RNA sequence: GGUCAUGAGCGCCAGCGUCAAGCCCCGGCUCGCUGGCCGGCAACCCUCCAACCGCGGUGGGGUGCCCCGGGAGACGACCAGGUUGAGUAGCCGCAUGCGGCUAUAAGGCAAGCGCGGGUC
Numbered sequence: 001g002g003u004c005a006u007g008a009g010c011g012c013c014a015g016c017g018u019c020a021a022g023c024c025c026c027g028g029c030u031c032g033c034u035g036g037c038c039g040g041c042a043a044c045c046c047u048c049c050a051a052c053c054g055c056g057g058u059g060g061g062g063u064g065c066c067c068c069g070g071g072a073g074a075c076g077a078c079c080a081g082g083u084u085g086a087g088u089a090g091c092c093g094c095a096u097g098c099g100g101c102u103a104u105a106a107g108g109c110a111a112g113c114g115c116g117g118g119u120c
Base pairs, nucleotide, nucleotide: 001079002078003077004076009038011037012036013035014034015033016032021030022029039066040065041064044062045061046060048057049056082109083108084107088105089104

Record summary
Shown here is a 120-nucleotide RNA, a member of the family "SAM (S-adenosyl methionine) riboswitch aptamer". From the family's description: SAM-IV is a mRNA element that regulates gene expression via direct sensing of S-adenosylmethionine (SAM or AdoMet). SAM-IV riboswitches share conserved nucleotide positions with the previously described SAM-I riboswitches sequence analysis and molecular recognition experiments suggest that SAM-I and SAM-IV riboswitches share similar ligand binding sites, but have different scaffolds.